Background
The family of this 128-nucleotide sequence from Candidula unifasciata is "U4atac minor spliceosomal RNA". The match comes from Rfam's covariance-model search (89 bits). A reference for the family is Marz et al. (2008), "Evolution of spliceosomal snRNA genes in metazoan animals", J Mol Evol. By type it is a spliceosomal small nuclear RNA.

RNA sequence: ACCGUCCUUGUCUUGGGGUGAGAGCUUGCUCAAUGAGUGUUUAGCGAGAGCAAGACUGCUGACACCAUAGACUAGUCAAAAAACGCAUCGCCUCCUUCAUUGGAGGUCUGGGUGCAAUUUCUGAAGCC
Numbered sequence: 001a002c003c004g005u006c007c008u009u010g011u012c013u014u015g016g017g018g019u020g021a022g023a024g025c026u027u028g029c030u031c032a033a034u035g036a037g038u039g040u041u042u043a044g045c046g047a048g049a050g051c052a053a054g055a056c057u058g059c060u061g062a063c064a065c066c067a068u069a070g071a072c073u074a075g076u077c078a079a080a081a082a083a084c085g086c087a088u089c090g091c092c093u094c095c096u097u098c099a100u101u102g103g104a105g106g107u108c109u110g111g112g113u114g115c116a117a118u119u120u121c122u123g124a125a126g127c128c
Stems, first nucleotide, its partner, number of pairs: 006018004020059001022057001025054007037045002085115005091106005

Rfam describes the family as follows. U4atac is an essential component of the minor U12-type spliceosome complex which is required for removal of the rarer class of eukaryotic introns (AT-AC, U12-type).
Gene Ontology terms of the family: pre-mRNA 5'-splice site binding, spliceosomal tri-snRNP complex assembly and U4atac snRNP.